Annotation: This 102-nucleotide RNA from Clostridium sp. cel8 belongs to the Rfam family "TPP riboswitch aptamer (THI element)".

RNA sequence: UAUAUUUUGUAGGGGUGCUUUUUUAAAGCUGAGAGGACUUAUGUUCAACCCUUUGAACCUGAUCCAGAUAAAGCUGGCGUAGGAAACAUACUAUUCUUUAGA
Numbered sequence: 001u002a003u004a005u006u007u008u009g010u011a012g013g014g015g016u017g018c019u020u021u022u023u024u025a026a027a028g029c030u031g032a033g034a035g036g037a038c039u040u041a042u043g044u045u046c047a048a049c050c051c052u053u054u055g056a057a058c059c060u061g062a063u064c065c066a067g068a069u070a071a072a073g074c075u076g077g078c079g080u081a082g083g084a085a086a087c088a089u090a091c092u093a094u095u096c097u098u099u100a101g102a
Stems, first nucleotide, its partner, number of pairs: 006090001008088003011052004017029005036045003058083004064077004

Pairs were carried over by alignment from the consensus structure, which is taken from published work. The match comes from Rfam's covariance-model search (79 bits). NCBI's taxonomy places the organism under Bacteria, Bacillota, Clostridia, Eubacteriales, Clostridium.